Shown here is a 135-nucleotide RNA sequence from Caenorhabditis japonica, a member of the family "Caenorhabditis snoRNA ceN41".
The family has 3 seed sequences and 13 matches in Rfam 15.1.
The source organism's lineage runs through Eukaryota, Bilateria, Rhabditoidea, Rhabditidae and Caenorhabditis.
On this family, see Jia et al., BMC Mol Biol 2007: "Systematic identification of non-coding RNA 2,2,7-trimethylguanosine cap structures in Caenorhabditis elegans".
The family's RNA type in Rfam is H/ACA-box small nucleolar RNA.
Rfam links the family to the GO terms nucleolus and RNA processing.
RNA sequence: UGGCACCUUGCACUCUACGCCUUUCCUUUCAAUGGGCUGGUAUGAUUUAUGAAGGAUGCGAGAGCGAAACUGGGAAGUUCGAAGACUCGUGAAUGGCUUUUACGGCUCCACGAGUUCGAAACUAUCACCACAAUU
Numbered sequence: 001u002g003g004c005a006c007c008u009u010g011c012a013c014u015c016u017a018c019g020c021c022u023u024u025c026c027u028u029u030c031a032a033u034g035g036g037c038u039g040g041u042a043u044g045a046u047u048u049a050u051g052a053a054g055g056a057u058g059c060g061a062g063a064g065c066g067a068a069a070c071u072g073g074g075a076a077g078u079u080c081g082a083a084g085a086c087u088c089g090u091g092a093a094u095g096g097c098u099u100u101u102a103c104g105g106c107u108c109c110a111c112g113a114g115u116u117c118g119a120a121a122c123u124a125u126c127a128c129c130a131c132a133a134u135u
Stems, first nucleotide, its partner, number of pairs: 003059003006055004016044002020040002025036003072129002074126002076123004084116008096106003